[Rfam]
Rfam assigns this 134-nucleotide sequence from Shouchella clausii to the family "FMN riboswitch aptamer (RFN element)". The match comes from Rfam's covariance-model search (103 bits).
RNA sequence: AGGUAUCUUCGGGGCAGGUGAAACUCCUGGCCGGCGGUAAAAGCCCGCGACUCUCCUUUUCUUUUAUCAAUAAGGGGACUGAUUUGGUGGAAUUCCAAAGCCGACGGUUAAAGUCCGGAUGGGAGAAGAUCAAC
Numbered sequence: 001a002g003g004u005a006u007c008u009u010c011g012g013g014g015c016a017g018g019u020g021a022a023a024c025u026c027c028u029g030g031c032c033g034g035c036g037g038u039a040a041a042a043g044c045c046c047g048c049g050a051c052u053c054u055c056c057u058u059u060u061c062u063u064u065u066a067u068c069a070a071u072a073a074g075g076g077g078a079c080u081g082a083u084u085u086g087g088u089g090g091a092a093u094u095c096c097a098a099a100g101c102c103g104a105c106g107g108u109u110a111a112a113g114u115c116c117g118g119a120u121g122g123g124a125g126a127a128g129a130u131c132a133a134c
Base pairs, nucleotide, nucleotide: 005130006129007128008127009126010125016028017027018026030114031113032103033102034048035047036046037045043101044100052078053077054076055075056074083099084098085097086096087095105117106116107115
Dot-bracket structure: ....((((((.....(((.......))).[[((((((.....[[))))...(((((.................)))))....(((((.......)))))]])).(((.....]]))).......))))))....
Lineage of the source: Bacteria > Bacilli > Bacillaceae > Shouchella > Shouchella clausii.